[Rfam]
RNA sequence: ACUCCGGUUGAUCCUGCCGGACCCGACUGCUAUCGGGGUGAGGCUAAGCCAUGGGAGUCGCGCGCCCAGCCGCCGCUGGGCGCGGCGCACGGCUGAGUAACACGUAGCUAACCUACCCUCGGGACGGGGAUAACCCCGGGAAACUGGGGCUAAUCCCCGAUAGGCGAGGGGGCCUGGAAUGGUCCCUCGCCGAAAGGGACCCUGGGGGGUUAUCGCCUGGGGUCCGCCCGAGGAUGGGGCUGCGGCCCAUCAUGGUAGUUGGCGGGGUAAUGGCCCGCCAAGCCGACGACGGGUAGGGGCCGUGGGAGCGGGAGCCCCCAGAUGGGCCCUGAGACAAGGGCCCAGGCCCUACGGGGCGCACCAGGCGCGAAACCUCCGCAAUGCGGGAAACCGUGACGGGGUCACCCCGAGUGCUCCCGUAAGGGAGCUUUUCCCCGCUGCAAGGAGGCGGGGGAAUAAGCGGGGGGCAAGUCUGGUGUCAGCCGCCGCGGUAAUACCAGCCCCGCGAGUGGUCGGGACGUCUACUG
Numbered sequence: 001a002c003u004c005c006g007g008u009u010g011a012u013c014c015u016g017c018c019g020g021a022c023c024c025g026a027c028u029g030c031u032a033u034c035g036g037g038g039u040g041a042g043g044c045u046a047a048g049c050c051a052u053g054g055g056a057g058u059c060g061c062g063c064g065c066c067c068a069g070c071c072g073c074c075g076c077u078g079g080g081c082g083c084g085g086c087g088c089a090c091g092g093c094u095g096a097g098u099a100a101c102a103c104g105u106a107g108c109u110a111a112c113c114u115a116c117c118c119u120c121g122g123g124a125c126g127g128g129g130a131u132a133a134c135c136c137c138g139g140g141a142a143a144c145u146g147g148g149g150c151u152a153a154u155c156c157c158c159g160a161u162a163g164g165c166g167a168g169g170g171g172g173c174c175u176g177g178a179a180u181g182g183u184c185c186c187u188c189g190c191c192g193a194a195a196g197g198g199a200c201c202c203u204g205g206g207g208g209g210u211u212a213u214c215g216c217c218u219g220g221g222g223u224c225c226g227c228c229c230g231a232g233g234a235u236g237g238g239g240c241u242g243c244g245g246c247c248c249a250u251c252a253u254g255g256u257a258g259u260u261g262g263c264g265g266g267g268u269a270a271u272g273g274c275c276c277g278c279c280a281a282g283c284c285g286a287c288g289a290c291g292g293g294u295a296g297g298g299g300c301c302g303u304g305g306g307a308g309c310g311g312g313a314g315c316c317c318c319c320a321g322a323u324g325g326g327c328c329c330u331g332a333g334a335c336a337a338g339g340g341c342c343c344a345g346g347c348c349c350u351a352c353g354g355g356g357c358g359c360a361c362c363a364g365g366c367g368c369g370a371a372a373c374c375u376c377c378g379c380a381a382u383g384c385g386g387g388a389a390a391c392c393g394u395g396a397c398g399g400g401g402u403c404a405c406c407c408c409g410a411g412u413g414c415u416c417c418c419g420u421a422a423g424g425g426a427g428c429u430u431u432u433c434c435c436c437g438c439u440g441c442a443a444g445g446a447g448g449c450g451g452g453g454g455a456a457u458a459a460g461c462g463g464g465g466g467g468c469a470a471g472u473c474u475g476g477u478g479u480c481a482g483c484c485g486c487c488g489c490g491g492u493a494a495u496a497c498c499a500g501c502c503c504c505g506c507g508a509g510u511g512g513u514c515g516g517g518a519c520g521u522c523u524a525c526u527g
Stems, first nucleotide, its partner, number of pairs: 004020005022517010033410009042368001048366003052363003057086003062083009093321003103244007112237002117233007125159004134149006164190008173182002197225010246293003254284003259281008296318004300311004323344006346357004374400001376399003382395005413428006433453007460506006473500004482489002
This 527-nucleotide part of an RNA from Acidilobus saccharovorans belongs to the Rfam family "Archaeal small subunit ribosomal RNA". The source organism's lineage runs through Archaea, Thermoproteati, Thermoproteota, Acidilobus and Acidilobus saccharovorans. The family has 86 seed sequences and 709 matches in Rfam 15.1. The sequence is in the family's curated seed alignment.